[Rfam]
RNA: Streptomyces sRNA 4677
Organism: Streptomyces pluripotens
RNA sequence: CGGACCACUGGCCUCCCCAAAGGACCGGGCGAAAGAACUACCCGCCCACCCACCCUCCCGGCCUGCGUCACCCGUCCGGGUGACCGGCUUGCAGCGGCGGGACACCGACGGUUACGUUCGCCGCGACAACCGCAAACAGAUGCAGACGAAGACAGCCCCCGGCCGGGACUGGCAUCCCGAUCGAGGGCCUGAGCGAUCAGGAAGCAGGACCUUCCCG
Number, nucleotide and partner (000 for none) at each position: 001c195002g194003g000004a000005c000006c000007a000008c000009u000010g063011g062012c061013c060014u000015c000016c000017c000018c000019a000020a000021a000022g000023g000024a000025c000026c000027g000028g000029g000030c000031g000032a000033a000034a000035g000036a000037a000038c000039u000040a000041c000042c000043c000044g000045c000046c000047c000048a000049c000050c000051c000052a000053c000054c000055c000056u000057c000058c000059c000060g013061g012062c011063c010064u000065g000066c000067g000068u083069c082070a081071c080072c079073c078074g000075u000076c000077c000078g073079g072080g071081u070082g069083a068084c000085c000086g000087g000088c000089u000090u000091g000092c000093a000094g124095c123096g122097g121098c120099g000100g000101g000102a000103c000104a000105c000106c000107g000108a000109c000110g000111g000112u000113u000114a000115c000116g000117u000118u000119c000120g098121c097122c096123g095124c094125g000126a000127c000128a000129a000130c000131c000132g000133c000134a000135a000136a000137c000138a000139g000140a000141u000142g000143c000144a000145g000146a000147c000148g000149a000150a000151g000152a000153c000154a000155g188156c187157c186158c185159c000160c183161g182162g000163c000164c000165g178166g177167g176168a175169c000170u000171g000172g000173c000174a000175u168176c167177c166178c165179g000180a000181u000182c161183g160184a000185g158186g157187g156188c155189c000190u000191g000192a000193g000194c002195g001196a000197u000198c000199a000200g215201g214202a213203a212204g211205c000206a000207g000208g000209a000210c000211c204212u203213u202214c201215c200216c000217g000